[Rfam]
RNA sequence: AGUAAGGAUAGAGGUGCAGAAACCAUUAGUACUUAUGUGGAGGAGGAUGAGCUCCUAUGAAGCCUAAGGAAAGGGGAAUUUGCCGAAGCGGAUGGAAUCUCAUAAUCCUGAAGUUGGUUCUGUUAUUGAAUAAAUACAGGACUGUCAUAUAGGAGACUAUAUGGAGGGCUAUCUAGCUA
Number, nucleotide and partner (000 for none) at each position: 001a000002g000003u000004a000005a000006g174007g173008a172009u171010a170011g169012a000013g000014g000015u000016g083017c082018a081019g080020a079021a000022a000023c076024c075025a000026u000027u000028a000029g000030u000031a000032c068033u067034u066035a065036u000037g063038u062039g000040g000041a000042g000043g000044a000045g000046g000047a000048u000049g000050a000051g000052c000053u000054c000055c000056u000057a000058u000059g000060a000061a000062g038063c037064c000065u035066a034067a033068g032069g000070a000071a000072a000073g000074g000075g024076g023077a000078a000079u020080u019081u018082g017083c016084c000085g000086a000087a115088g114089c113090g000091g000092a000093u000094g108095g107096a106097a000098u104099c000100u000101c000102a000103u000104a098105a000106u096107c095108c094109u000110g000111a000112a000113g089114u088115u087116g143117g142118u141119u140120c139121u138122g137123u000124u136125a135126u134127u133128g000129a000130a000131u000132a000133a127134a126135u125136a124137c122138a121139g120140g119141a118142c117143u116144g000145u164146c163147a162148u161149a160150u159151a158152g000153g000154a000155g000156a000157c000158u151159a150160u149161a148162u147163g146164g145165a000166g000167g000168g000169c011170u010171a009172u008173c007174u006175a000176g000177c000178u000179a000
Rfam assigns this 179-nucleotide RNA sequence from Oceanobacillus halophilus to the family "Lysine riboswitch aptamer". Taxonomically the source falls in Oceanobacillus (Bacteria, Bacillati, Bacillota, Bacilli).